[Rfam]
RNA sequence: AUACUCACGCGCGACUGGCGACAGGGCGUGACGGCCACCCCCCCGCGGGUGGCGUCCGCUGCGAGGUGGAUCACCACCGGGGAGCGCGGGGGCCGGCAUGCGAUGCCGCCCUGAACUGCCGUUCGCCUGGGCAACCCGC
Number, nucleotide and partner (000 for none) at each position: 001a000002u000003a000004c092005u091006c090007a000008c088009g087010c086011g085012c084013g000014a000015c081016u080017g127018g126019c125020g124021a123022c000023a000024g000025g000026g000027c000028g000029u000030g000031a000032c000033g000034g000035c000036c000037a000038c000039c000040c000041c000042c000043c000044c000045g000046c000047g000048g000049g000050u000051g000052g000053c000054g000055u000056c000057c000058g000059c000060u000061g000062c000063g000064a000065g000066g077067u076068g075069g074070a000071u000072c000073a000074c069075c068076a067077c066078c000079g000080g016081g015082g000083a000084g012085c011086g010087c009088g008089g000090g006091g005092g004093c000094c000095g000096g000097c000098a000099u000100g000101c000102g000103a000104u000105g000106c000107c000108g000109c000110c000111c000112u000113g000114a000115a000116c000117u133118g132119c131120c130121g000122u000123u021124c020125g019126c018127c017128u000129g000130g120131g119132c118133a117134a000135c000136c000137c000138g000139c000
Background
The family of this 139-nucleotide sequence from Ideonella aquatica is "ZMP/ZTP riboswitch aptamer (pfl RNA motif)". The family's consensus secondary structure is taken from published work.